Notes: SAM riboswitch aptamer (S box leader): a 106-nucleotide RNA from Bittarella massiliensis. A search with the family's covariance model found it, with a score of 70 bits. Its family is annotated with regulation of gene expression in the Gene Ontology.

Nucleotides: 106
Base pairs, nucleotide, nucleotide: 003104004103005102006101007100008099013042015041016040017039021032022031023030026083027082028081029080043075045073046072048071049070050068051067052066079098084095085094086093
Number, partner (000 for none) and nucleotide at each position: 001000c002000a003104c004103u005102u006101a007100u008099c009000a010000a011000g012000a013042g014000u015041g016040g017039c018000u019000g020000a021032g022031g023030g024000a025000a026083c027082a028081g029080g030023c031022c032021c033000u034000g035000u036000g037000a038000a039017g040016c041015c042013c043075g044000a045073c046072a047000a048071c049070c050068u051067g052066c053000c054000c055000c056000c057000c058000g059000c060000g061000g062000g063000g064000g065000u066052g067051c068050a069000a070049g071048g072046u073045g074000c075043c076000a077000a078000a079098u080029c081028c082027u083026g084095c085094g086093g087000g088000u089000a090000a091000a092000g093086c094085c095084g096000a097000a098079a099008g100007a101006u102005a103004a104003g105000c106000u